A member of the RNA family "Small nucleolar RNA snR70" from Zygotorulaspora mrakii, 166 nucleotides long.
Taxonomically the source falls in Zygotorulaspora (Eukaryota, Fungi, Saccharomycotina, Saccharomycetaceae).
It scores 115 bits against the family's covariance model.
The base pairs follow the family's consensus structure, which was predicted with CMfinder.
It is annotated as a C/D-box small nucleolar RNA.
[Rfam]
RNA sequence: CCAAAUGAUGAUUCUUUUGUCGACCGGGCGGACAUAUUAGUAUCGGGAACGCGGGAGUCAUGGCAACACGUUCGGCUUUUUGUGUACAAAUUUUUAAAAGGCCGGAUAGUCAUGGCGCUAUUACUGCGAACCCGAGAAGGGAUGAUUGGUCACUAGACAGCUGAGC
Number, nucleotide and partner (000 for none) at each position: 001c000002c000003a000004a000005a000006u000007g161008a000009u159010g158011a000012u000013u000014c000015u000016u000017u155018u000019g153020u152021c000022g151023a150024c149025c148026g147027g000028g000029c000030g000031g000032a000033c000034a000035u144036a143037u142038u141039a000040g000041u138042a000043u135044c134045g133046g000047g131048a000049a000050c128051g127052c126053g125054g124055g000056a122057g116058u115059c114060a113061u112062g111063g000064c000065a000066a000067c000068a000069c000070g107071u106072u105073c104074g103075g102076c101077u100078u099079u098080u097081u000082g000083u000084g000085u000086a000087c000088a000089a000090a000091u000092u000093u000094u000095u000096a000097a080098a079099a078100g077101g076102c075103c074104g073105g072106a071107u070108a000109g000110u000111c062112a061113u060114g059115g058116c057117g000118c000119u000120a000121u000122u056123a000124c054125u053126g052127c051128g050129a000130a000131c047132c000133c045134g044135a043136g000137a000138a041139g000140g000141g038142a037143u036144g035145a000146u000147u026148g025149g024150u023151c022152a020153c019154u000155a017156g000157a000158c010159a009160g000161c007162u000163g000164a000165g000166c000